RNA sequence: AGUUGCAAUCAUGCAAUGGACUUAUGCUGUUUAACCCACAGCGUACCGGAUAGAACCCGGAUAGGACUACUUAUAUAGGAGAAAACAAAUG
Number, nucleotide and partner (000 for none) at each position: 001a000002g017003u016004u015005g014006c013007a000008a000009u000010c000011a000012u000013g006014c005015a004016a003017u002018g000019g000020a000021c000022u000023u045024a044025u043026g042027c041028u040029g039030u000031u000032u000033a000034a000035c000036c000037c000038a000039c029040a028041g027042c026043g025044u024045a023046c060047c059048g058049g057050a000051u000052a000053g000054a000055a000056c000057c049058c048059g047060g046061a000062u000063a000064g000065g000066a000067c000068u000069a000070c000071u000072u000073a000074u000075a000076u000077a000078g000079g000080a000081g000082a000083a000084a000085a000086c000087a000088a000089a000090u000091g000
Background
freshwater-2 RNA: a 91-nucleotide RNA sequence.